[Rfam]
RNA sequence: CGGAUGGGGGCUGGCGAUGCGCCCCGGUCGUAUGCGGAACGGCUUCUGCUGGUCCGCCGAUCGGCUCGGGGCGUGGACUGUUGUCGGCCGUGCCGGCGGCCUAAGCCCGGGGGCCCUAGGUGCCUCCGGUCGCCGUCGUCGGCACGGCCGGUCUCCGCGCGCCGCAAGGCGCGCCCCUCGGGGCGCUGCGCUGCAACGGCCUGCGAGCUCCCCAUCCGACCCGUCUUGAAACACGG
Numbered sequence: 001c002g003g004a005u006g007g008g009g010g011c012u013g014g015c016g017a018u019g020c021g022c023c024c025c026g027g028u029c030g031u032a033u034g035c036g037g038a039a040c041g042g043c044u045u046c047u048g049c050u051g052g053u054c055c056g057c058c059g060a061u062c063g064g065c066u067c068g069g070g071g072c073g074u075g076g077a078c079u080g081u082u083g084u085c086g087g088c089c090g091u092g093c094c095g096g097c098g099g100c101c102u103a104a105g106c107c108c109g110g111g112g113g114c115c116c117u118a119g120g121u122g123c124c125u126c127c128g129g130u131c132g133c134c135g136u137c138g139u140c141g142g143c144a145c146g147g148c149c150g151g152u153c154u155c156c157g158c159g160c161g162c163c164g165c166a167a168g169g170c171g172c173g174c175c176c177c178u179c180g181g182g183g184c185g186c187u188g189c190g191c192u193g194c195a196a197c198g199g200c201c202u203g204c205g206a207g208c209u210c211c212c213c214a215u216c217c218g219a220c221c222c223g224u225c226u227u228g229a230a231a232c233a234c235g236g
Base pairs, nucleotide, nucleotide: 001218002217003216004215005214006213007212008211009210010209011207012206017074020073021072022071023070024069025068026067078199079198080197081196082195083194084193221236222235223234224233
RNA: Eukaryotic large subunit ribosomal RNA, nucleotides 421 to 656